The family of this 47-nucleotide RNA is "eL15-Euryarchaeota ribosomal protein leader". The family's consensus secondary structure is taken from published work. The family's RNA type in Rfam is cis-regulatory leader.

[Rfam]
RNA sequence: CCUGUCUGUACAGGUCGGGAUGUGGCCCGCGAGGGCUGAACCAGACA
Numbered sequence: 001c002c003u004g005u006c007u008g009u010a011c012a013g014g015u016c017g018g019g020a021u022g023u024g025g026c027c028c029g030c031g032a033g034g035g036c037u038g039a040a041c042c043a044g045a046c047a
Stems, first nucleotide, its partner, number of pairs: 001014005017042002024037005